[Rfam]
RNA sequence: UCCCUCCAGAUCCCUUUCCCAUCAGAUCUGCAUACCGAUCUUGUGGUCGAAAAAGGAGGAAAAAUAGAAUUCAAACUGGUCUCCAGCCUCUUUGCUGGUGCAGUCCUGCUCUGAGAGGG
Numbered sequence: 001u002c003c004c005u006c007c008a009g010a011u012c013c014c015u016u017u018c019c020c021a022u023c024a025g026a027u028c029u030g031c032a033u034a035c036c037g038a039u040c041u042u043g044u045g046g047u048c049g050a051a052a053a054a055g056g057a058g059g060a061a062a063a064a065u066a067g068a069a070u071u072c073a074a075a076c077u078g079g080u081c082u083c084c085a086g087c088c089u090c091u092u093u094g095c096u097g098g099u100g101c102a103g104u105c106c107u108g109c110u111c112u113g114a115g116a117g118g119g
Stems, first nucleotide, its partner, number of pairs: 003059005019046003023043001025040004076108001078106002081103002086099003
Dot-bracket structure: ..(((((...........(((.(.((((........))))..))))........)))))................(.((.((...(((........)))..)).)).)...........
A member of the RNA family "Small nucleolar RNA SNORA61" from Strix occidentalis, 119 nucleotides long.
Taxonomically the source falls in Strix occidentalis (Eukaryota, Sarcopterygii, Dipnotetrapodomorpha, Amniota).
The match comes from Rfam's covariance-model search (81 bits).
The family's consensus secondary structure was predicted with PFOLD.
The family's RNA type in Rfam is H/ACA-box small nucleolar RNA.